Record summary: Shown here is a 161-nucleotide RNA sequence from Nocardioides psychrotolerans, a member of the family "c-di-AMP riboswitch aptamer (ydaO/yuaA leader)".
RNA sequence: AGUUCUAGGUUGCCCUCGGGCGUCCGGGAGCCGGGGAACCAACUCAUCUGGGGUGGAUCUCCCGCAAGGCGUCGCGUGGGUGACCACGCGGCUGGAGCGGGAGUAAGGCAAGUCGUGCCUGAACCCGUCAGCUCACCCGGUAGGCGUACGACACGCAAGGG
Dot-bracket structure: ..(((.....................)))((((((....((.......))(((.....(((((((...............................)))))))..((((.......))))...))).........))))))....................